The family of this 335-nucleotide sequence from Herbaspirillum seropedicae is "Bacterial RNase P class A". A search with the family's covariance model found it, with a score of 216 bits. On this family, see Frank and Pace, Annu Rev Biochem 1998: "Ribonuclease P: unity and diversity in a tRNA processing ribozyme". The family's RNA type in Rfam is ribozyme. The source organism's lineage runs through Bacteria, Pseudomonadati, Pseudomonadota, Herbaspirillum and Herbaspirillum seropedicae. Its family is annotated with ribonuclease P activity, dimeric ribonuclease P complex and tRNA processing in the Gene Ontology.

RNA sequence: GAUGCAGGCCAGACAGCCGCUGGCCGCCUUCGCAAGGAGGCGGCGGGAGGAAGGUCCGGACUCCACAGAGCAGGGUGACGGUUAACGGCCGUCCGCUGAAAGCCGGCGCAAGCCGGUAUAAGGCGAGGAACAGGGCCACAGAGACGAGCGUAUUAAGUUACGGUGAAACGCGGUAACCUCCACCUGGAGCAAUUUCAAAUAGGCACGCGUUGAUGUGGCUCGCGGAGCGUGCGGGUAGAAAGCUUGAGCGGCGGAGCAAUCCGUCGCCUAGAGGAAUGGCUGUCAUAGCGGGUUUCCCGCCGUAACAGAAUCCGGCCUACCGGCCUGCUUCAUUG
Numbered sequence: 001g002a003u004g005c006a007g008g009c010c011a012g013a014c015a016g017c018c019g020c021u022g023g024c025c026g027c028c029u030u031c032g033c034a035a036g037g038a039g040g041c042g043g044c045g046g047g048a049g050g051a052a053g054g055u056c057c058g059g060a061c062u063c064c065a066c067a068g069a070g071c072a073g074g075g076u077g078a079c080g081g082u083u084a085a086c087g088g089c090c091g092u093c094c095g096c097u098g099a100a101a102g103c104c105g106g107c108g109c110a111a112g113c114c115g116g117u118a119u120a121a122g123g124c125g126a127g128g129a130a131c132a133g134g135g136c137c138a139c140a141g142a143g144a145c146g147a148g149c150g151u152a153u154u155a156a157g158u159u160a161c162g163g164u165g166a167a168a169c170g171c172g173g174u175a176a177c178c179u180c181c182a183c184c185u186g187g188a189g190c191a192a193u194u195u196c197a198a199a200u201a202g203g204c205a206c207g208c209g210u211u212g213a214u215g216u217g218g219c220u221c222g223c224g225g226a227g228c229g230u231g232c233g234g235g236u237a238g239a240a241a242g243c244u245u246g247a248g249c250g251g252c253g254g255a256g257c258a259a260u261c262c263g264u265c266g267c268c269u270a271g272a273g274g275a276a277u278g279g280c281u282g283u284c285a286u287a288g289c290g291g292g293u294u295u296c297c298c299g300c301c302g303u304a305a306c307a308g309a310a311u312c313c314g315g316c317c318u319a320c321c322g323g324c325c326u327g328c329u330u331c332a333u334u335g
Stems, first nucleotide, its partner, number of pairs: 001331002004328007012284007020047002023044008052318003056315005061189004068221004073185005078092005093127001094125004128180002133178002135174003149162004193241004203232006214224003248267008